[Rfam]
RNA sequence: UGCAUGCAUGACUGUAAGUCGCAUUGGAUAAAAGCGUUUGUUAAAUGGCAUAUA
Numbered sequence: 001u002g003c004a005u006g007c008a009u010g011a012c013u014g015u016a017a018g019u020c021g022c023a024u025u026g027g028a029u030a031a032a033a034g035c036g037u038u039u040g041u042u043a044a045a046u047g048g049c050a051u052a053u054a
Stems, first nucleotide, its partner, number of pairs: 013043001014041003020036003024032002
Dot-bracket structure: ............((((...(((.((.....)).)))..))).)...........
RNA: UnaL2 LINE 3' element
Organism: Salvelinus namaycush